permuted transfer-messenger RNA: a 219-nucleotide sequence from Caenispirillum bisanense. Taxonomically the source falls in Caenispirillum (Bacteria, Pseudomonadati, Pseudomonadota, Alphaproteobacteria). A search with the family's covariance model found it, with a score of 143 bits. Bacterial tmRNA, also known as 10Sa RNA or SsrA, is named for its dual tRNA and mRNA-like properties.

RNA sequence: GGGGCUAAACCCAUUGCGGAAUAAGCGUUACGGACCCGGGGGCGGUACCCGGCGGCUCCACCAACCUCACCCGGCGGGCUAACGUCGGUGGCAAGGGGCCGAAAUAGGAUCGACGUGCGUGGUAAAGGCAUUGGCUGUCCCCGGCAUGGCUCCACCGUUAUCGGGCCAAACGCAAUAGUUGCCAACGACAACUUUGCUGAGGUUCGCGCUGCUGCGUAA
Numbered sequence: 001g002g003g004g005c006u007a008a009a010c011c012c013a014u015u016g017c018g019g020a021a022u023a024a025g026c027g028u029u030a031c032g033g034a035c036c037c038g039g040g041g042g043c044g045g046u047a048c049c050c051g052g053c054g055g056c057u058c059c060a061c062c063a064a065c066c067u068c069a070c071c072c073g074g075c076g077g078g079c080u081a082a083c084g085u086c087g088g089u090g091g092c093a094a095g096g097g098g099c100c101g102a103a104a105u106a107g108g109a110u111c112g113a114c115g116u117g118c119g120u121g122g123u124a125a126a127g128g129c130a131u132u133g134g135c136u137g138u139c140c141c142c143g144g145c146a147u148g149g150c151u152c153c154a155c156c157g158u159u160a161u162c163g164g165g166c167c168a169a170a171c172g173c174a175a176u177a178g179u180u181g182c183c184a185a186c187g188a189c190a191a192c193u194u195u196g197c198u199g200a201g202g203u204u205c206g207c208g209c210u211g212c213u214g215c216g217u218a219a
Stems, first nucleotide, its partner, number of pairs: 001141005015130003026119003030116003036052005053101007142157003
The family's consensus secondary structure is taken from published work.